Rfam assigns this 112-nucleotide RNA from Alkalihalobacillus alcalophilus to the family "EGFOA RNA".

[Rfam]
RNA sequence: GAAAACCCAGAAUUAUACCGUCGCAGUAGCCUAUUGGCUAGGUGGCAUGACAGAAUUGUAUUUUAUAAGUACAUACGUGGUAAAGCUGCACCUGGGCACGUUGAAUGUCAUG
Numbered sequence: 001g002a003a004a005a006c007c008c009a010g011a012a013u014u015a016u017a018c019c020g021u022c023g024c025a026g027u028a029g030c031c032u033a034u035u036g037g038c039u040a041g042g043u044g045g046c047a048u049g050a051c052a053g054a055a056u057u058g059u060a061u062u063u064u065a066u067a068a069g070u071a072c073a074u075a076c077g078u079g080g081u082a083a084a085g086c087u088g089c090a091c092c093u094g095g096g097c098a099c100g101u102u103g104a105a106u107g108u109c110a111u112g
Stems, first nucleotide, its partner, number of pairs: 006096005020091002023089004027040005046112007057073006075101005